[Rfam]
RNA sequence: UGGGAAAAGAAGAAGCACCCGCUUCUCACCUGAUUGACGCAAUUGGCAGUUGGCAGGUUUUACGUGAACUUUCUUUAUUACUUUUGUUUCGUAAAGUGUGGGUGUAUUCAUCCGCACUUUUUUAUUUGU
Numbered sequence: 001u002g003g004g005a006a007a008a009g010a011a012g013a014a015g016c017a018c019c020c021g022c023u024u025c026u027c028a029c030c031u032g033a034u035u036g037a038c039g040c041a042a043u044u045g046g047c048a049g050u051u052g053g054c055a056g057g058u059u060u061u062a063c064g065u066g067a068a069c070u071u072u073c074u075u076u077a078u079u080a081c082u083u084u085u086g087u088u089u090c091g092u093a094a095a096g097u098g099u100g101g102g103u104g105u106a107u108u109c110a111u112c113c114g115c116a117c118u119u120u121u122u123u124a125u126u127u128g129u
Stems, first nucleotide, its partner, number of pairs: 011026006028058003036051003039047002097116008

This 129-nucleotide RNA sequence from Neobacillus bataviensis belongs to the Rfam family "Ribosomal protein L20 leader". A reference for the family is Zengel and Lindahl (1994), "Diverse mechanisms for regulating ribosomal protein synthesis in Escherichia coli", Prog Nucleic Acid Res Mol Biol. Rfam's curators write: This family is a putative r-protein leader autoregulatory structure found in B. subtilis and other low-GC Gram-positive bacteria. It is located in the 5' untranslated regions of mRNAs encoding initiation factor 3 followed by ribosomal proteins L35 and L20 (infC-rpmI-rplT). A Rho-independent transcription terminator structure that is probably involved in regulation is included at the 3' end. The source organism's lineage runs through Bacteria, Bacillati, Bacilli, Bacillaceae and Neobacillus bataviensis. The base pairs follow the family's consensus structure, which was predicted with CMfinder. By type it is a cis-regulatory leader.